[Rfam]
RNA sequence: GCCUUUUGUGUUGCCCGUUCACUUUGGCCACUGGUGCACGAGGUGUCAAAAAAGGCGCAAAGGAAGACUUUGCAGCCUCCUCUCGGCAGGCAUCUGCGUGCCUUGGCCGAGUGUGCUGGCAAAGUGACAGUC
Numbered sequence: 001g002c003c004u005u006u007u008g009u010g011u012u013g014c015c016c017g018u019u020c021a022c023u024u025u026g027g028c029c030a031c032u033g034g035u036g037c038a039c040g041a042g043g044u045g046u047c048a049a050a051a052a053a054g055g056c057g058c059a060a061a062g063g064a065a066g067a068c069u070u071u072g073c074a075g076c077c078u079c080c081u082c083u084c085g086g087c088a089g090g091c092a093u094c095u096g097c098g099u100g101c102c103u104u105g106g107c108c109g110a111g112u113g114u115g116c117u118g119g120c121a122a123a124g125u126g127a128c129a130g131u132c
Stems, first nucleotide, its partner, number of pairs: 003055005009048002012045004016040003020036004067125004073118004082111005087105001090101002
The family of this 132-nucleotide RNA sequence from Monodelphis domestica is "Small nucleolar RNA SNORA13". Rfam describes the family as follows. ACA13 is a member of the H/ACA class of snoRNA that guide the sites of modification of uridines to pseudouridines. It is one of the family's seed sequences. The family's RNA type in Rfam is H/ACA-box small nucleolar RNA. Its family is annotated with RNA processing and nucleolus in the Gene Ontology. Taxonomically the source falls in Monodelphis (Eukaryota, Teleostomi, Dipnotetrapodomorpha, Amniota).